[Rfam]
RNA sequence: GGAUACCAGGAUUCAAAGUCGAUGCUUUUCAUGCUUGCAUGAAAAAGCAUCGAUUUGGAAUCCGCAAAAUAUGAGAAAGGAGCCCGAUAGGGCGGAUUUCGAAUAUUUUAUGGAUAGCGUGAGCACGAAGUGCGGAGCAAUCCAUAGGUAUCG
Numbered sequence: 001g002g003a004u005a006c007c008a009g010g011a012u013u014c015a016a017a018g019u020c021g022a023u024g025c026u027u028u029u030c031a032u033g034c035u036u037g038c039a040u041g042a043a044a045a046a047g048c049a050u051c052g053a054u055u056u057g058g059a060a061u062c063c064g065c066a067a068a069a070u071a072u073g074a075g076a077a078a079g080g081a082g083c084c085c086g087a088u089a090g091g092g093c094g095g096a097u098u099u100c101g102a103a104u105a106u107u108u109u110a111u112g113g114a115u116a117g118c119g120u121g122a123g124c125a126c127g128a129a130g131u132g133c134g135g136a137g138c139a140a141u142c143c144a145u146a147g148g149u150a151u152c153g
Stems, first nucleotide, its partner, number of pairs: 002152006010062004016056013029042005066109007075100004082093004112143004117138002123133004

Clostridiales-1 RNA: a 153-nucleotide RNA from Hespellia stercorisuis. The family's RNA type in Rfam is small RNA. The match comes from Rfam's covariance-model search (122 bits). Pairs were carried over by alignment from the consensus structure, which is taken from published work.